[Rfam]
RNA sequence: UCGUAUGAAUGCUACCCUAGACGCCAUGGAAAAUGGGGCCGAAGAAGCAAACCAGAAGUUUUUAACAUCUUACUUCUGCGGAAACUGACAGGCAAAAGGAAGGUAGCAGGACGAAUCUUUGGAGAGAAUGCUUGAGGCGCCGAAGCCGCAAGCGUCACCUACGAGGCGAGAACCAACUAGGUAAAAGGACAGAGAG
Numbered sequence: 001u002c003g004u005a006u007g008a009a010u011g012c013u014a015c016c017c018u019a020g021a022c023g024c025c026a027u028g029g030a031a032a033a034u035g036g037g038g039c040c041g042a043a044g045a046a047g048c049a050a051a052c053c054a055g056a057a058g059u060u061u062u063u064a065a066c067a068u069c070u071u072a073c074u075u076c077u078g079c080g081g082a083a084a085c086u087g088a089c090a091g092g093c094a095a096a097a098g099g100a101a102g103g104u105a106g107c108a109g110g111a112c113g114a115a116u117c118u119u120u121g122g123a124g125a126g127a128a129u130g131c132u133u134g135a136g137g138c139g140c141c142g143a144a145g146c147c148g149c150a151a152g153c154g155u156c157a158c159c160u161a162c163g164a165g166g167c168g169a170g171a172a173c174c175a176a177c178u179a180g181g182u183a184a185a186a187g188g189a190c191a192g193a194g195a196g
Stems, first nucleotide, its partner, number of pairs: 001114003010108007022037001024036004038093003044089001046086002053078007117194005126156001128155007157182003163177001165174002
RNA: glycine-GGAnGA riboswitch aptamer